[Rfam]
Nucleotides: 067
Stems, first nucleotide, its partner, number of pairs: 003065001006062008015054008026046004031041003
Number, partner (000 for none) and nucleotide at each position: 001000a002000c003065g004000a005000u006062c007061g008060g009059a010058u011057c012056g013055a014000g015054c016053c017052c018051g019050u020049u021048g022047c023000g024000u025000a026046u027045c028044g029043a030000a031041c032040u033039u034000g035000g036000u037000u038000c039033g040032a041031g042000c043029u044028c045027g046026a047022g048021c049020g050019g051018c052017g053016g054015g055013u056012c057011g058010a059009u060008c061007c062006g063000u064000g065003c066000c067000a